[Rfam]
RNA sequence: CGGGCUGUAGCGCAGUUUGGUAGCGCACUUGACUGGGGGUCAAGGGGUCGUCGGUUCGAAUCCGGCCAGCCCGA
Numbered sequence: 001c002g003g004g005c006u007g008u009a010g011c012g013c014a015g016u017u018u019g020g021u022a023g024c025g026c027a028c029u030u031g032a033c034u035g036g037g038g039g040u041c042a043a044g045g046g047g048u049c050g051u052c053g054g055u056u057c058g059a060a061u062c063c064g065g066c067c068a069g070c071c072c073g074a
Stems, first nucleotide, its partner, number of pairs: 001073007010026004028044005050066005
A member of the RNA family "tRNA" from Catellatospora sp. IY07-71, 74 nucleotides long. Rfam classes the family as a transfer RNA. Lineage of the source: Bacteria > Bacillati > Actinomycetota > Micromonosporaceae > Catellatospora. Clan: tRNA clan. Gene Ontology term of the family: triplet codon-amino acid adaptor activity.